[Rfam]
RNA sequence: GUGCCUUAAACUAAUGAGUAAGGAAAAUAAACAAGCCCUGGUAACGCUUGGCUUACAUACUAGAUUUACUCAGGGUUGUUAACUCUACGGAUUUUUCCGUAGAUCUACGGAUUUUCGAAAUUAUUUCGGAUUUUCGGAUAUCGACCACAUUUCUACGGAUUUUUCAGCUGCAGCCAUCAAGAAGCUAAAAUGAGGAUUUUUUACUCUUAAGGUGUCAUUCUUCUUCUUUUUUGGUCUA
Numbered sequence: 001g002u003g004c005c006u007u008a009a010a011c012u013a014a015u016g017a018g019u020a021a022g023g024a025a026a027a028u029a030a031a032c033a034a035g036c037c038c039u040g041g042u043a044a045c046g047c048u049u050g051g052c053u054u055a056c057a058u059a060c061u062a063g064a065u066u067u068a069c070u071c072a073g074g075g076u077u078g079u080u081a082a083c084u085c086u087a088c089g090g091a092u093u094u095u096u097c098c099g100u101a102g103a104u105c106u107a108c109g110g111a112u113u114u115u116c117g118a119a120a121u122u123a124u125u126u127c128g129g130a131u132u133u134u135c136g137g138a139u140a141u142c143g144a145c146c147a148c149a150u151u152u153c154u155a156c157g158g159a160u161u162u163u164u165c166a167g168c169u170g171c172a173g174c175c176a177u178c179a180a181g182a183a184g185c186u187a188a189a190a191u192g193a194g195g196a197u198u199u200u201u202u203a204c205u206c207u208u209a210a211g212g213u214g215u216c217a218u219u220c221u222u223c224u225u226c227u228u229u230u231u232u233g234g235u236c237u238a
Stems, first nucleotide, its partner, number of pairs: 004023005033054005040047001172237002175234001178233007187222002189219005196213005
RNA: U12 minor spliceosomal RNA
Organism: Diabrotica virgifera